[Rfam]
The family of this 77-nucleotide RNA from Spinacia oleracea is "Small nucleolar RNA R11/Z151".
The literature on the family includes a 2001 paper in J Mol Biol by Barneche et al., "Identification of 66 box C/D snoRNAs in Arabidopsis thaliana: extensive gene duplications generated multiple isoforms predicting new ribosomal RNA 2'-O-methylation sites".
Rfam classes the family as a C/D-box small nucleolar RNA.
A search with the family's covariance model found it, with a score of 50 bits.
RNA sequence: AAGUUGAUGAUGAUAAUUUACUUUAUCUUAGCGGAUUUCAGUGAUAUCAAUGAUCUGAUUGUUACACACUGAAGUUC
Numbered sequence: 001a002a003g004u005u006g007a008u009g010a011u012g013a014u015a016a017u018u019u020a021c022u023u024u025a026u027c028u029u030a031g032c033g034g035a036u037u038u039c040a041g042u043g044a045u046a047u048c049a050a051u052g053a054u055c056u057g058a059u060u061g062u063u064a065c066a067c068a069c070u071g072a073a074g075u076u077c
Stems, first nucleotide, its partner, number of pairs: 002076004